This 162-nucleotide sequence from Myotis myotis belongs to the Rfam family "U1 spliceosomal RNA". About the family: U1 is a small nuclear RNA (snRNA) component of the spliceosome (involved in pre-mRNA splicing). The family is grouped with related families in Rfam's "U1 clan". Lineage of the source: Eukaryota > Metazoa > Gnathostomata > Vespertilionidae > Myotis. Rfam classes the family as a spliceosomal small nuclear RNA.
Nucleotides: 162
Stems, first nucleotide, its partner, number of pairs: 012120001014118002016048001018046004024041004050089003054086001056083003060079004091115001093113001094111003098108002136161006144153003
Number, partner (000 for none) and nucleotide at each position: 001000g002000c003000a004000u005000c006000a007000a008000c009000c010000u011000g012120g013000a014118a015117g016048g017000u018046g019045a020044g021043a022000u023000a024041c025040c026039a027038u028000a029000a030000u031000c032000a033000c034000a035000a036000a037000g038027a039026u040025g041024g042000c043021u044020u045019u046018c047000c048016c049000a050089a051088g052087g053000u054086g055000a056083g057082g058081c059000u060079u061078a062077u063076c064000c065000a066000u067000u068000a069000u070000g071000u072000u073000c074000c075000a076063g077062a078061u079060g080000g081058g082057c083056u084000g085000a086054c087052c088051c089050u090000g091115c092000a093113a094111u095110u096109u097000u098108c099107c100000c101000a102000a103000a104000u105000g106000u107099g108098g109096g110095a111094a112000c113093u114000c115091g116000a117015u118014u119000g120012c121000a122000u123000a124000a125000u126000u127000u128000a129000u130000a131000g132000u133000a134000g135000u136161g137160g138159g139158g140157g141156a142000c143000u144153g145152u146151g147000u148000u149000u150000g151146c152145g153144c154000u155000c156141u157140c158139c159138c160137u161136u162000a